This 99-nucleotide sequence from Saccharospirillum sp. MSK14-1 belongs to the Rfam family "TPP riboswitch aptamer (THI element)".

RNA sequence: GCGUUCUCGCCGGGGUGCCGCCCGUUAAUGGUGGCUGAGACUGACCCGUCGAACCUGAACCAGUUAAUGCUGGCGUAGGGAGUUGAGACGAUCUGCCUU
Number, nucleotide and partner (000 for none) at each position: 001g000002c000003g000004u000005u000006c087007u086008c085009g084010c000011c048012g047013g046014g045015g000016u000017g035018c034019c033020g032021c031022c000023c000024g000025u000026u000027a000028a000029u000030g000031g021032u020033g019034g018035c017036u000037g000038a000039g000040a000041c000042u000043g000044a000045c014046c013047c012048g011049u000050c000051g000052a000053a000054c079055c078056u077057g076058a000059a000060c073061c072062a071063g070064u000065u000066a000067a000068u000069g000070c063071u062072g061073g060074c000075g000076u057077a056078g055079g054080g000081a000082g000083u000084u009085g008086a007087g006088a000089c000090g000091a000092u000093c000094u000095g000096c000097c000098u000099u000
Pairs were carried over by alignment from the consensus structure, which is taken from published work.